[Rfam]
A member of the RNA family "Purine riboswitch aptamer" from Selenihalanaerobacter shriftii, 102 nucleotides long. The match comes from Rfam's covariance-model search (83 bits). The family's consensus secondary structure is taken from published work. Riboswitches are metabolite binding domains within certain messenger RNAs that serve as precision sensors for their corresponding targets. Allosteric rearrangement of mRNA structure is mediated by ligand binding, and this results in modulation of gene expression. A class of riboswitches that selectively recognises guanine and becomes saturated at concentrations as low as 5 nM. In Bacillus subtilis, this mRNA motif is located on at least five separate transcriptional units that together encode 17 genes that are mostly involved in purine transport and purine nucleotide biosynthesis. It has also been shown that some members of this family are specific for adenine instead. Hence this family are termed purine riboswitches.

RNA sequence: GAUUAAAAUUUUAAUAAAUCUCGUAUAUUUCCCGUAAUAUGGUCGGGAAGUUUCUACUAAAUGGCCACAAACCAUUUACCUACGGGAGAAACAUUAUCUGUA
Numbered sequence: 001g002a003u004u005a006a007a008a009u010u011u012u013a014a015u016a017a018a019u020c021u022c023g024u025a026u027a028u029u030u031c032c033c034g035u036a037a038u039a040u041g042g043u044c045g046g047g048a049a050g051u052u053u054c055u056a057c058u059a060a061a062u063g064g065c066c067a068c069a070a071a072c073c074a075u076u077u078a079c080c081u082a083c084g085g086g087a088g089a090a091a092c093a094u095u096a097u098c099u100g101u102a
Base pairs, nucleotide, nucleotide: 019087020086021085022084023083024082025081029049030048031047032046033045034044058078059077060076061075062074063073064072